[Rfam]
RNA sequence: ACAGUACAAUCUGAUCAGGCGACGUAAUUUUACCGGAUUAUCGUGCGGCCGGGCUGACAUUCAGCAACAGGAUAUUAUGCCUGUGGGACAGUA
Numbered sequence: 001a002c003a004g005u006a007c008a009a010u011c012u013g014a015u016c017a018g019g020c021g022a023c024g025u026a027a028u029u030u031u032a033c034c035g036g037a038u039u040a041u042c043g044u045g046c047g048g049c050c051g052g053g054c055u056g057a058c059a060u061u062c063a064g065c066a067a068c069a070g071g072a073u074a075u076u077a078u079g080c081c082u083g084u085g086g087g088a089c090a091g092u093a
Stems, first nucleotide, its partner, number of pairs: 011091003016087001018050003022044003027039001053065005067084005

Rfam assigns this 93-nucleotide RNA sequence from Variimorphobacter saccharofermentans to the family "NiCo (Nickel/Cobalt) riboswitch aptamer". The base pairs follow the family's consensus structure, which is taken from published work. Its Rfam clan is "NiCo_riboswitches". On this family, see Furukawa et al., Mol Cell 2015: "Bacterial riboswitches cooperatively bind Ni(2+) or Co(2+) ions and control expression of heavy metal transporters". Gene Ontology terms of the family: cobalt ion binding and metal ion homeostasis. The match comes from Rfam's covariance-model search (68 bits).